[Rfam]
RNA: Small nucleolar RNA Z278
Organism: Cynara cardunculus
RNA sequence: GUCGAUGAUGAAAUAAUCCAAAUGUAUGAGAUAUGGUGGAUUUGAGACCUUGUUUUACAGGGAGAACCACCUGGUUAAAGUUGUAUUUCAUUUGAUAUUACUGGAUUCAAAUGAGGC
Dot-bracket structure: (((............................................(((((.....)))))....................................................)))